[Rfam]
RNA sequence: CCCGGGGUUCAGCCCCCGGUAGUCUAGGAGCGGUGCGCCACUGGUAACGGUGGGGUGCUGAGCGCUCUGACAAUGUAGCCACCUUACGGGGUACGUCAUGCCCCGUGAGGGGUCUGGCGUGAUUUCGGGAGUUGCACCCGGAUGAGGCG
Numbered sequence: 001c002c003c004g005g006g007g008u009u010c011a012g013c014c015c016c017c018g019g020u021a022g023u024c025u026a027g028g029a030g031c032g033g034u035g036c037g038c039c040a041c042u043g044g045u046a047a048c049g050g051u052g053g054g055g056u057g058c059u060g061a062g063c064g065c066u067c068u069g070a071c072a073a074u075g076u077a078g079c080c081a082c083c084u085u086a087c088g089g090g091g092u093a094c095g096u097c098a099u100g101c102c103c104c105g106u107g108a109g110g111g112g113u114c115u116g117g118c119g120u121g122a123u124u125u126c127g128g129g130a131g132u133u134g135c136a137c138c139c140g141g142a143u144g145a146g147g148c149g
Stems, first nucleotide, its partner, number of pairs: 002019006027068005032059005038053006081092004093120004103110002124142006
RNA: Group II catalytic intron D1-D4-7